[Rfam]
Notes:
Shown here is a 64-nucleotide sequence from Clunio marinus, a member of the family "Selenocysteine insertion sequence 1". The incorporation of selenocysteine into a protein sequence is directed by an in-frame UGA codon (usually a stop codon) within the coding region of the mRNA. Selenoprotein mRNAs contain a conserved secondary structure in the 3' UTR that is required for the distinction of UGA stop from UGA selenocysteine. The selenocysteine insertion sequence (SECIS) is around 60 nt in length and adopts a hairpin structure which is sufficiently well-defined and conserved to act as a computational screen for selenoprotein genes. The family has 61 seed sequences and 3,793 matches in Rfam 15.1. The family's consensus secondary structure is taken from published work.
RNA sequence: UGCAAUUUAUGAUGAGAUUAGAGUAAAGCUCAUUGAGACCUCUAAUCUCUGAUGAUUUCUUGUA
Numbered sequence: 001u002g003c004a005a006u007u008u009a010u011g012a013u014g015a016g017a018u019u020a021g022a023g024u025a026a027a028g029c030u031c032a033u034u035g036a037g038a039c040c041u042c043u044a045a046u047c048u049c050u051g052a053u054g055a056u057u058u059c060u061u062g063u064a
Stems, first nucleotide, its partner, number of pairs: 001064005014049010029037003

Rfam classes the family as a cis-regulatory element.